[Rfam]
RNA sequence: ACCAACGCUUUCGGGGGCCUCGGUACAGGCAGGCUGGGGAAUCCCCUCUUUACAUGGCGCGUGCCACGGCUCUUCUAGCCGACGGCGGCGCAGACGGUUCAGGGGUCCUGGUACAGGCAGGCCGGGAAUCCCCUCUUUUACAAGGCGCGUACCACGGCCCGUCGAGGCGGUGGAUGGCGCAGACGGUUCAGGGGCCCUGGUACAGGCAGGCCGGGAAUCCCCUCUUUUACAAGGCGC
Number, nucleotide and partner (000 for none) at each position: 001a000002c000003c000004a000005a000006c000007g000008c000009u000010u000011u000012c000013g046014g045015g044016g043017g042018c039019c038020u037021c036022g035023g034024u033025a000026c000027a000028g000029g000030c000031a000032g000033g024034c023035u022036g021037g020038g019039g018040a000041a000042u017043c016044c015045c014046c013047u000048c000049u000050u000051u000052a000053c000054a000055u000056g000057g000058c000059g000060c087061g086062u085063g000064c000065c000066a000067c081068g080069g079070c000071u078072c000073u000074u000075c000076u000077a000078g071079c069080c068081g067082a000083c000084g000085g062086c061087g060088g000089c000090g000091c000092a000093g000094a000095c000096g000097g000098u000099u000100c000101a000102g133103g132104g131105g130106u000107c126108c125109u124110g123111g122112u121113a000114c000115a000116g000117g000118c000119a000120g000121g112122c111123c110124g109125g108126g107127a000128a000129u000130c105131c104132c103133c102134u000135c000136u000137u000138u000139u000140a000141c000142a000143a000144g000145g180146c179147g178148c177149g000150u000151a000152c173153c172154a171155c170156g000157g000158c000159c000160c000161g000162u000163c000164g000165a000166g000167g000168c000169g000170g155171u154172g153173g152174a000175u000176g000177g148178c147179g146180c145181a000182g000183a000184c000185g000186g000187u000188u000189c000190a223191g222192g221193g220194g219195c000196c215197c214198u213199g212200g211201u210202a000203c000204a000205g000206g000207c000208a000209g000210g201211c200212c199213g198214g197215g196216a000217a000218u000219c194220c193221c192222c191223u190224c000225u000226u000227u000228u000229a000230c000231a000232a000233g000234g000235c000236g000237c000

The record is a 237-nucleotide sequence from Pseudomonas knackmussii, which matches "Nitrogen regulated small RNA" in Rfam. The pairing is the family consensus, mapped onto this sequence.